[Rfam]
RNA sequence: GCGUGGGUCGGCCCGCUGCACUGGACUCAGUGGGCUGGGGGAUACCGCCGCUCCAUUCCCCGCGGGCGGCGGACCGGUCCGGGAGGUGAGGCCCACCUCCCGGACUGUG
Number, nucleotide and partner (000 for none) at each position: 001g108002c107003g000004u000005g000006g075007g074008u073009c037010g036011g035012c034013c033014c032015g031016c030017u029018g028019c000020a000021c000022u000023g000024g000025a000026c000027u000028c018029a017030g016031u015032g014033g013034g012035c011036u010037g009038g043039g000040g000041g000042a000043u038044a000045c072046c071047g070048c069049c068050g067051c066052u065053c064054c000055a000056u000057u000058c000059c000060c000061c000062g000063c000064g053065g052066g051067c050068g049069g048070c047071g046072g045073a008074c007075c006076g106077g105078u104079c103080c102081g101082g100083g099084a098085g097086g096087u095088g094089a000090g000091g000092c000093c000094c088095a087096c086097c085098u084099c083100c082101c081102g080103g079104a078105c077106u076107g002108u001109g000
This 109-nucleotide RNA from Streptomyces sp. ADI96-02 belongs to the Rfam family "Streptomyces RNA 4115". Identified by deep sequencing of transcriptome at the end of exponential growth phase. Sequencing size consistent with notrthern blot size. Streptomyces specific. The literature on the family includes a 2011 paper in RNA Biol by Vockenhuber et al., "Deep sequencing-based identification of small non-coding RNAs in Streptomyces coelicolor". It scores 109 bits against the family's covariance model.